Notes
A member of the RNA family "mir-29 microRNA precursor family" from Merluccius polli, 68 nucleotides long.
RNA sequence: GGUUGACUGAUUUCUUUUGGUGCUUAGAGUCCUGUUGUGCUUCUAGCACCAUUUGAAAUCGGUUACAA
Number, nucleotide and partner (000 for none) at each position: 001g000002g000003u000004u065005g063006a000007c062008u061009g060010a059011u058012u057013u056014c055015u000016u000017u000018u051019g050020g049021u048022g047023c000024u000025u045026a044027g043028a042029g000030u000031c000032c000033u000034g000035u000036u000037g000038u000039g000040c000041u000042u028043c027044u026045a025046g000047c022048a021049c020050c019051a018052u000053u000054u000055g014056a013057a012058a011059u010060c009061g008062g007063u005064u000065a004066c000067a000068a000
About the family: This family represents the microRNA (miRNA) precursors mir-29. The match comes from Rfam's covariance-model search (64 bits). The family's consensus secondary structure was predicted with PFOLD. On this family, see Ambros, Cell 2001: "microRNAs: tiny regulators with great potential".